Shown here is a 141-nucleotide sequence from Tetracentron sinense, a member of the family "small nucleolar RNA snoR134".
Rfam classes the family as an H/ACA-box small nucleolar RNA.
On this family, see Chen and Wu, Nucleic Acids Res 2009: "Mining small RNA sequencing data: a new approach to identify small nucleolar RNAs in Arabidopsis".
The family has 5 seed sequences and 792 matches in Rfam 15.1.
[Rfam]
RNA sequence: CUGCACGGUGCACCCCGGGCUUCUCUGAAAAUUUCAAUGACGAUGAAAGCCCCAUUGCUCGUGCUAGAUUGCGCCGUUUAGUGUUGCAGAUUAGCCUGAUAUCUCAAACGGCCGAUCUGUGUCAAAAAAAUGGCGACAGAU
Number, nucleotide and partner (000 for none) at each position: 001c000002u000003g064004c063005a062006c061007g060008g059009u000010g058011c057012a000013c000014c000015c000016c000017g052018g051019g050020c049021u048022u046023c045024u043025c042026u000027g000028a000029a000030a000031a000032u000033u000034u000035c000036a000037a000038u000039g000040a000041c000042g025043a024044u000045g023046a022047a000048a021049g020050c019051c018052c017053c000054a000055u000056u000057g011058c010059u008060c007061g006062u005063g004064c003065u000066a000067g000068a000069u000070u000071g000072c000073g134074c133075c132076g131077u130078u129079u128080a000081g000082u124083g123084u000085u121086g120087c119088a118089g117090a116091u000092u000093a000094g112095c111096c110097u000098g000099a000100u000101a000102u000103c000104u000105c000106a000107a000108a000109c000110g096111g095112c094113c000114g000115a000116u090117c089118u088119g087120u086121g085122u000123c083124a082125a000126a000127a000128a079129a078130a077131u076132g075133g074134c073135g000136a000137c000138a000139g000140a000141u000